Notes
The record is a 148-nucleotide RNA sequence from Sapajus apella, which matches "U4 spliceosomal RNA" in Rfam. Rfam's curators write: U4 small nuclear RNA (U4 snRNA) is a component of the major U2-dependent spliceosome. A search with the family's covariance model found it, with a score of 88 bits. Its family is annotated with spliceosomal tri-snRNP complex assembly and U4 snRNP in the Gene Ontology.
RNA sequence: AGCUUUGCACAGUGGCAGUAUCAUAGCCAAUGAGGUUUAUCUGAGGCAUGAUUAUUGCUAAUUGAACUUUCCCCAAUACCCCACCAUGACGACUGGAAAUAUAGUCAUUGCCAAUUGCAUUGGCAAUUACUGGCAGUCUCUAUGGGGA
Numbered sequence: 001a002g003c004u005u006u007g008c009a010c011a012g013u014g015g016c017a018g019u020a021u022c023a024u025a026g027c028c029a030a031u032g033a034g035g036u037u038u039a040u041c042u043g044a045g046g047c048a049u050g051a052u053u054a055u056u057g058c059u060a061a062u063u064g065a066a067c068u069u070u071c072c073c074c075a076a077u078a079c080c081c082c083a084c085c086a087u088g089a090c091g092a093c094u095g096g097a098a099a100u101a102u103a104g105u106c107a108u109u110g111c112c113a114a115u116u117g118c119a120u121u122g123g124c125a126a127u128u129a130c131u132g133g134c135a136g137u138c139u140c141u142a143u144g145g146g147g148a
Base pairs, nucleotide, nucleotide: 020052021051022050023049024048026047027046028045034042035041084123085122086120087119088118090117091116092115094113095112096111137148138147139146140145